[Rfam]
RNA sequence: UACUUCUAUCGUGUAUCUCCUCCGAUUGAUGCAGCCUUAGAUGCUU
Numbered sequence: 001u002a003c004u005u006c007u008a009u010c011g012u013g014u015a016u017c018u019c020c021u022c023c024g025a026u027u028g029a030u031g032c033a034g035c036c037u038u039a040g041a042u043g044c045u046u
Stems, first nucleotide, its partner, number of pairs: 008026004033045003

Shown here is a 46-nucleotide sequence from Parasitaxus usta, a member of the family "Plastid-ycf3 group II-D1 intron".
NCBI's taxonomy places the organism under Eukaryota, Embryophyta, Tracheophyta, Podocarpaceae, Parasitaxus.
Plastid rpl16 is a non-coding RNA (ncRNA) recognised in plastids. It was recognised in and intronic region of a ribosome rpl16 gene.
Pairs were carried over by alignment from the consensus structure, which was predicted with LocARNA.
For this family Rfam cites "Retrograde signaling in plants: A critical review focusing on the GUN pathway and beyond" (Richter et al., Plant Commun, 2023).
The sequence is in the family's curated seed alignment.